[Rfam]
RNA sequence: CACUGUUCUCAGGGCGGGGCGAAAUUCCCCACCGGCGGUGAGCAGGCCGAAACCUGCAAGCCCGCGAGCGGCUCCGGCGCAAGUUGGAGUGACAAGCAGAUCUGGUGUGAUUCCAGAGCCGACGGUCAUAGUCCGGAUGGAAGAGAACGUGC
Numbered sequence: 001c002a003c004u005g006u007u008c009u010c011a012g013g014g015c016g017g018g019g020c021g022a023a024a025u026u027c028c029c030c031a032c033c034g035g036c037g038g039u040g041a042g043c044a045g046g047c048c049g050a051a052a053c054c055u056g057c058a059a060g061c062c063c064g065c066g067a068g069c070g071g072c073u074c075c076g077g078c079g080c081a082a083g084u085u086g087g088a089g090u091g092a093c094a095a096g097c098a099g100a101u102c103u104g105g106u107g108u109g110a111u112u113c114c115a116g117a118g119c120c121g122a123c124g125g126u127c128a129u130a131g132u133c134c135g136g137a138u139g140g141a142a143g144a145g146a147a148c149g150u151g152c
Stems, first nucleotide, its partner, number of pairs: 004149007017029003031132002033121002035065004060119002068097002101117005123135003
Dot-bracket structure: ...(((((((......(((.......))).[[((((((.....................[[))))..((..........................))...(((((.......)))))]])).(((.....]]))).......)))))))...
This 152-nucleotide RNA sequence from Shimia gijangensis belongs to the Rfam family "FMN riboswitch aptamer (RFN element)". Gene Ontology term of the family: FMN binding. Rfam's curators write: The RFN element is a highly conserved domain that is found frequently in the 5'-untranslated regions of prokaryotic mRNAs that encode for flavin mononucleotide (FMN) biosynthesis and transport proteins. This element is a metabolite-dependent riboswitch that directly binds FMN in the absence of proteins. The family's consensus secondary structure is taken from published work.